[Rfam]
Record summary:
Shown here is a 367-nucleotide RNA from Facklamia sp. 252, a member of the family "transfer-messenger RNA". The family's consensus secondary structure is taken from published work. Rfam classes the family as a non-coding RNA gene. A search with the family's covariance model found it, with a score of 192 bits. From the family's description: Bacterial tmRNA, also known as 10Sa RNA or SsrA, is named for its dual tRNA and mRNA-like properties. The family is grouped with related families in Rfam's "tRNA clan".
RNA sequence: GGGGAUGUCAUUGGUUUCGACAGGUAUUGUUCGAGCUUAUGAUGCGUCAGGAAGGCAGCGACUUCCUAAAAACGCUACAGUUAAAUAUAACUGCAAACAAUCAAAACAAUUCUUUCGCUUUAGCAGCUUAAUCCCUGCGGGCGAAGAUCACCCUGGCAUCGCCCAUGUGCUCAGAUCGUGGUCUCAAAUUUAGUGGGAUACGCCUUACAUUUCCGUCUGUAAUGUAAGUAAGAGACGACCAGACUCGCAAUCGCAGAUGCCUGUUUAUCGGCUAAGCAGUAGCUAAAUUUUAGUAGAUAAACUAUUGACGUAGACUCGUUUGUGGCGAGGUAUUUGGACAGGGGUUCGACUCCCCUCAUCUCCAUUU
Numbered sequence: 001g002g003g004g005a006u007g008u009c010a011u012u013g014g015u016u017u018c019g020a021c022a023g024g025u026a027u028u029g030u031u032c033g034a035g036c037u038u039a040u041g042a043u044g045c046g047u048c049a050g051g052a053a054g055g056c057a058g059c060g061a062c063u064u065c066c067u068a069a070a071a072a073c074g075c076u077a078c079a080g081u082u083a084a085a086u087a088u089a090a091c092u093g094c095a096a097a098c099a100a101u102c103a104a105a106a107c108a109a110u111u112c113u114u115u116c117g118c119u120u121u122a123g124c125a126g127c128u129u130a131a132u133c134c135c136u137g138c139g140g141g142c143g144a145a146g147a148u149c150a151c152c153c154u155g156g157c158a159u160c161g162c163c164c165a166u167g168u169g170c171u172c173a174g175a176u177c178g179u180g181g182u183c184u185c186a187a188a189u190u191u192a193g194u195g196g197g198a199u200a201c202g203c204c205u206u207a208c209a210u211u212u213c214c215g216u217c218u219g220u221a222a223u224g225u226a227a228g229u230a231a232g233a234g235a236c237g238a239c240c241a242g243a244c245u246c247g248c249a250a251u252c253g254c255a256g257a258u259g260c261c262u263g264u265u266u267a268u269c270g271g272c273u274a275a276g277c278a279g280u281a282g283c284u285a286a287a288u289u290u291u292a293g294u295a296g297a298u299a300a301a302c303u304a305u306u307g308a309c310g311u312a313g314a315c316u317c318g319u320u321u322g323u324g325g326c327g328a329g330g331u332a333u334u335u336g337g338a339c340a341g342g343g344g345u346u347c348g349a350c351u352c353c354c355c356u357c358a359u360c361u362c363c364a365u366u367u
Stems, first nucleotide, its partner, number of pairs: 001363007021336008030327001035323002039319004045310005050066005055078001057076004119143001121141001123138004146183006153174003156170004162197005204228008215245001218242001247283002250280002253277002259272003263302004268295001340356005